[Rfam]
RNA: Small Cajal body-specific RNA 2
Organism: Microcebus murinus
RNA sequence: ACACCCGGCAGGGAGAGUGGCCUGGGGCGAGGUGGUGUGCGUGGUGCCACGGUGUCGUGGAAGGCACGCGUAGGCCGAGUGUGAGUGGGUGCGCAAGUGGGUGCGCGAAUGCGCGGGGCGUGCGAGGUGAGUGUGUGCGCCCGCCCCUGCGCCCCUCCCCCUGCCUACAACUUGAUCUUAUUUGAUCGGGUAGUGGCCCCAGCCUGCCCGGCAGACCCGAGAUGAAAAGCUCUCCUCCUGCGAAGCCCCUCUUCGGAGCACUGUGCAGCUAGGCCCCUUGGAGGGCGGCAACGCCCGGGCCUCUGAGGUCCUGGAGCUGUCCUGCGGGCCCAGCGCUCAGAAGUGAUGAAUUGAUCAGAUAGAUGAGGCUGGGCUUAUCCCGGGCCACUGAUUAUCGAGGCGAUUCUGAUUUGA
Numbered sequence: 001a002c003a004c005c006c007g008g009c010a011g012g013g014a015g016a017g018u019g020g021c022c023u024g025g026g027g028c029g030a031g032g033u034g035g036u037g038u039g040c041g042u043g044g045u046g047c048c049a050c051g052g053u054g055u056c057g058u059g060g061a062a063g064g065c066a067c068g069c070g071u072a073g074g075c076c077g078a079g080u081g082u083g084a085g086u087g088g089g090u091g092c093g094c095a096a097g098u099g100g101g102u103g104c105g106c107g108a109a110u111g112c113g114c115g116g117g118g119c120g121u122g123c124g125a126g127g128u129g130a131g132u133g134u135g136u137g138c139g140c141c142c143g144c145c146c147c148u149g150c151g152c153c154c155c156u157c158c159c160c161c162u163g164c165c166u167a168c169a170a171c172u173u174g175a176u177c178u179u180a181u182u183u184g185a186u187c188g189g190g191u192a193g194u195g196g197c198c199c200c201a202g203c204c205u206g207c208c209c210g211g212c213a214g215a216c217c218c219g220a221g222a223u224g225a226a227a228a229g230c231u232c233u234c235c236u237c238c239u240g241c242g243a244a245g246c247c248c249c250u251c252u253u254c255g256g257a258g259c260a261c262u263g264u265g266c267a268g269c270u271a272g273g274c275c276c277c278u279u280g281g282a283g284g285g286c287g288g289c290a291a292c293g294c295c296c297g298g299g300c301c302u303c304u305g306a307g308g309u310c311c312u313g314g315a316g317c318u319g320u321c322c323u324g325c326g327g328g329c330c331c332a333g334c335g336c337u338c339a340g341a342a343g344u345g346a347u348g349a350a351u352u353g354a355u356c357a358g359a360u361a362g363a364u365g366a367g368g369c370u371g372g373g374c375u376u377a378u379c380c381c382g383g384g385c386c387a388c389u390g391a392u393u394a395u396c397g398a399g400g401c402g403a404u405u406c407u408g409a410u411u412u413g414a
Stems, first nucleotide, its partner, number of pairs: 051153005056068004087102001090099003105140003110135005115128001181228003186220004191215001195212001198211002202207001251308008261299002268294002273289003276285002316334004321328002338413004348406006367386004372381002